[Rfam]
RNA sequence: GUGCAAGGCAUAGCGCCGGGACCGCAAUCUCUUCAGCGGUUGACGAGGCGGGGGUAAUCGAAAUUUUCGGCGGAUACCCCCCGGCAUACGGCAAGCCGUAAGGCAACGGUCAAAAAACGCGGGCAACUGCGCAACAAAGCCGCUGUUCUGCCGUAU
Numbered sequence: 001g002u003g004c005a006a007g008g009c010a011u012a013g014c015g016c017c018g019g020g021a022c023c024g025c026a027a028u029c030u031c032u033u034c035a036g037c038g039g040u041u042g043a044c045g046a047g048g049c050g051g052g053g054g055u056a057a058u059c060g061a062a063a064u065u066u067u068c069g070g071c072g073g074a075u076a077c078c079c080c081c082c083g084g085c086a087u088a089c090g091g092c093a094a095g096c097c098g099u100a101a102g103g104c105a106a107c108g109g110u111c112a113a114a115a116a117a118c119g120c121g122g123g124c125a126a127c128u129g130c131g132c133a134a135c136a137a138a139g140c141c142g143c144u145g146u147u148c149u150g151c152c153g154u155a156u
Stems, first nucleotide, its partner, number of pairs: 020041006050081005058070004082098004087093001103146003107142003118131005
RNA: glmS glucosamine-6-phosphate activated ribozyme aptamer